RNA sequence: UGAACCUUUAAGCUAGUCCAGUGAGGCUGGUAAGGUUAGCGGAUAAAGCAAAAAUGUAUUCCUUUCUGGGAUAAUCUUUUCUUUGUAUAUUCUAGCACCUUACCAUCUGCAUUGGUGAGGUGUUUUUUGGU
Numbered sequence: 001u002g003a004a005c006c007u008u009u010a011a012g013c014u015a016g017u018c019c020a021g022u023g024a025g026g027c028u029g030g031u032a033a034g035g036u037u038a039g040c041g042g043a044u045a046a047a048g049c050a051a052a053a054a055u056g057u058a059u060u061c062c063u064u065u066c067u068g069g070g071a072u073a074a075u076c077u078u079u080u081c082u083u084u085g086u087a088u089a090u091u092c093u094a095g096c097a098c099c100u101u102a103c104c105a106u107c108u109g110c111a112u113u114g115g116u117g118a119g120g121u122g123u124u125u126u127u128u129g130g131u
Stems, first nucleotide, its partner, number of pairs: 003037006013030006050080004057073006094124012
RNA: PyrR binding site